[Rfam]
RNA sequence: GAGUAACUUUGUUGCAUGUCGCUCUGGAUAAGAGCGUCUGCCAAAUGCCAUUAA
Numbered sequence: 001g002a003g004u005a006a007c008u009u010u011g012u013u014g015c016a017u018g019u020c021g022c023u024c025u026g027g028a029u030a031a032g033a034g035c036g037u038c039u040g041c042c043a044a045a046u047g048c049c050a051u052u053a054a
Stems, first nucleotide, its partner, number of pairs: 013043001014041003020036006